This 461-nucleotide RNA sequence from Plenodomus lingam belongs to the Rfam family "RNase MRP". A reference for the family is Walker and Avis (2005), "Secondary structure probing of the human RNase MRP RNA reveals the potential for MRP RNA subsets", Biochem Biophys Res Commun.
[Rfam]
RNA sequence: UCCCCGCUCAAAGAAUCGCAACGAAGCACACACACAGAGCGCAUGCCCUCCCUCGGGAGCUGCGUCUCCUCGUCGUUCCAAGAACAGCUUUGGGAGAAAGUCCCCGGACAUCCGGUUCUUCGCAAUCGGCAUUUUCAGCAACGAACCGCCAUAGAAGCGCGGCUUCCAUUACCGCUUACGAUGCUCUUCACCGUCUUUGCGCCGCCUGUACUCUUGUGCUGCGCUUCGCCGAUGCUGUGGGUCGAGGGGACUGGCACCUGGACGAUGAUAUGAGUCCGCUGGUUUCCAUGGCCUGCAUGCGGAGGUGUUGUUUUGGUUCUGGAGGAGGACGGAGAUUGUCGUGGAUGGUGUCAGGUAUGGGAGGUCUUUUCGUCCAGUUUAUGGUUAUGCGAUUGCCCUGUUUGCGCUCUGUUAUGGGGUGUAAAGGGGGUAACUCAAUGGGGCUUAUUCUUGAUGCGAGG
Numbered sequence: 001u002c003c004c005c006g007c008u009c010a011a012a013g014a015a016u017c018g019c020a021a022c023g024a025a026g027c028a029c030a031c032a033c034a035c036a037g038a039g040c041g042c043a044u045g046c047c048c049u050c051c052c053u054c055g056g057g058a059g060c061u062g063c064g065u066c067u068c069c070u071c072g073u074c075g076u077u078c079c080a081a082g083a084a085c086a087g088c089u090u091u092g093g094g095a096g097a098a099a100g101u102c103c104c105c106g107g108a109c110a111u112c113c114g115g116u117u118c119u120u121c122g123c124a125a126u127c128g129g130c131a132u133u134u135u136c137a138g139c140a141a142c143g144a145a146c147c148g149c150c151a152u153a154g155a156a157g158c159g160c161g162g163c164u165u166c167c168a169u170u171a172c173c174g175c176u177u178a179c180g181a182u183g184c185u186c187u188u189c190a191c192c193g194u195c196u197u198u199g200c201g202c203c204g205c206c207u208g209u210a211c212u213c214u215u216g217u218g219c220u221g222c223g224c225u226u227c228g229c230c231g232a233u234g235c236u237g238u239g240g241g242u243c244g245a246g247g248g249g250a251c252u253g254g255c256a257c258c259u260g261g262a263c264g265a266u267g268a269u270a271u272g273a274g275u276c277c278g279c280u281g282g283u284u285u286c287c288a289u290g291g292c293c294u295g296c297a298u299g300c301g302g303a304g305g306u307g308u309u310g311u312u313u314u315g316g317u318u319c320u321g322g323a324g325g326a327g328g329a330c331g332g333a334g335a336u337u338g339u340c341g342u343g344g345a346u347g348g349u350g351u352c353a354g355g356u357a358u359g360g361g362a363g364g365u366c367u368u369u370u371c372g373u374c375c376a377g378u379u380u381a382u383g384g385u386u387a388u389g390c391g392a393u394u395g396c397c398c399u400g401u402u403u404g405c406g407c408u409c410u411g412u413u414a415u416g417g418g419g420u421g422u423a424a425a426g427g428g429g430g431u432a433a434c435u436c437a438a439u440g441g442g443g444c445u446u447a448u449u450c451u452u453g454a455u456g457c458g459a460g461g
Stems, first nucleotide, its partner, number of pairs: 002461002005458003008454004014394006022092006037078005098446003102443004284362006293355002297346002300343001329339004396430004401425009

It is annotated as a ribozyme.
The match comes from Rfam's covariance-model search (82 bits).